A member of the RNA family "GP20-b RNA", 58 nucleotides long. The base pairs follow the family's consensus structure, which is taken from published work. The sequence is in the family's curated seed alignment. By type it is a cis-regulatory element.
RNA sequence: CGCUGACCGCGGGCGUAAACGGCGGAGCGGUACGGGAUGCGACCCCGUAAAAAGCGUA
Numbered sequence: 001c002g003c004u005g006a007c008c009g010c011g012g013g014c015g016u017a018a019a020c021g022g023c024g025g026a027g028c029g030g031u032a033c034g035g036g037a038u039g040c041g042a043c044c045c046c047g048u049a050a051a052a053a054g055c056g057u058a
Stems, first nucleotide, its partner, number of pairs: 001015004007025004033047004
Dot-bracket structure: ((((..[[[[.))))......]]]].......((((.......))))...........